The family of this 74-nucleotide RNA from Mus musculus is "mir-30 microRNA precursor family". This family consists of the mammalian microRNA (miRNA) precursor mir-30a. Animal miRNAs are transcribed as ~70nt precursors and subsequently processed by the Dicer enzyme to give a ~22nt product. In this case the mature sequence comes from both the 3' (miR-30) and 5' (mir-97-6) arms of the precursor. The extents of the hairpin precursors are not generally known and are estimated based on hairpin prediction. Taxonomically the source falls in Mus (Eukaryota, Dipnotetrapodomorpha, Mammalia, Muroidea). The match comes from Rfam's covariance-model search (66 bits). The literature on the family includes a 2001 paper in Cell by Ambros, "microRNAs: tiny regulators with great potential". Rfam links the family to the GO terms gene silencing by miRNA and RISC complex. Rfam 15.1 lists 3,879 matches to the family in 647 species.

RNA sequence: UCAGUUCAUGUAAACAUCCUACACUCAGCUGUCAUACAUGCGUUGGCUGGGAUGUGGAUGUUUACGUCAGCUGU
Numbered sequence: 001u002c003a004g005u006u007c008a009u010g011u012a013a014a015c016a017u018c019c020u021a022c023a024c025u026c027a028g029c030u031g032u033c034a035u036a037c038a039u040g041c042g043u044u045g046g047c048u049g050g051g052a053u054g055u056g057g058a059u060g061u062u063u064a065c066g067u068c069a070g071c072u073g074u
Stems, first nucleotide, its partner, number of pairs: 002073005008067012021055003024051007